Overview
The record is a 98-nucleotide RNA from Liparis tanakae, which matches "Vault RNA" in Rfam. NCBI's taxonomy places the organism under Eukaryota, Metazoa, Chordata, Euteleosteomorpha, Liparis.

RNA sequence: GCAUUGGUUUAGCUCAGUGGCUACUUCUUCAAAAACUUUCAGAUUAUGUGAUUCUCUCCCUAACUGGGAUCAAACCUCGGGCGCCAUCUAGUAUUUUC
Numbered sequence: 001g002c003a004u005u006g007g008u009u010u011a012g013c014u015c016a017g018u019g020g021c022u023a024c025u026u027c028u029u030c031a032a033a034a035a036c037u038u039u040c041a042g043a044u045u046a047u048g049u050g051a052u053u054c055u056c057u058c059c060c061u062a063a064c065u066g067g068g069a070u071c072a073a074a075c076c077u078c079g080g081g082c083g084c085c086a087u088c089u090a091g092u093a094u095u096u097u098c
Stems, first nucleotide, its partner, number of pairs: 003092005012082004017078001019076002025074002
For this family Rfam cites "Evolution of Vault RNAs" (Stadler et al., Mol Biol Evol, 2009). A search with the family's covariance model found it, with a score of 42 bits. It is annotated as a non-coding RNA gene.